[Rfam]
RNA sequence: AAAUGUUGCAAGAUUCCCGAUAGGAUUCAUUUUUCAAUGAAAAUGCCUUGUAACCGACAAAUAUAAAGGGGGAAUUAUUUAUG
Numbered sequence: 001a002a003a004u005g006u007u008g009c010a011a012g013a014u015u016c017c018c019g020a021u022a023g024g025a026u027u028c029a030u031u032u033u034u035c036a037a038u039g040a041a042a043a044u045g046c047c048u049u050g051u052a053a054c055c056g057a058c059a060a061a062u063a064u065a066a067a068g069g070g071g072g073a074a075u076u077a078u079u080u081a082u083g
Stems, first nucleotide, its partner, number of pairs: 014074005022048003026041005054069002
The record is an 83-nucleotide RNA sequence from Vagococcus fessus, which matches "SAM-III riboswitch aptamer (SMK box)" in Rfam. Its family is annotated with methionine adenosyltransferase activity and regulation of translational initiation in the Gene Ontology. A reference for the family is Wang and Breaker (2008), "Riboswitches that sense S-adenosylmethionine and S-adenosylhomocysteine", Biochem Cell Biol.